[Rfam]
RNA sequence: GGUUUAAUUACCCAAGUUUGAGGUAAUUGAAUGUUACGGCUGCUGUGGCUUGAAAUGAAAUUUUGGAACAUCCUACAUUUGCGGGACAAC
Numbered sequence: 001g002g003u004u005u006a007a008u009u010a011c012c013c014a015a016g017u018u019u020g021a022g023g024u025a026a027u028u029g030a031a032u033g034u035u036a037c038g039g040c041u042g043c044u045g046u047g048g049c050u051u052g053a054a055a056u057g058a059a060a061u062u063u064u065g066g067a068a069c070a071u072c073c074u075a076c077a078u079u080u081g082c083g084g085g086a087c088a089a090c
Base pairs, nucleotide, nucleotide: 003031004030005029006028007027008026009025010024011023012022034055035054037052039049040048041047071086072085073084074083076081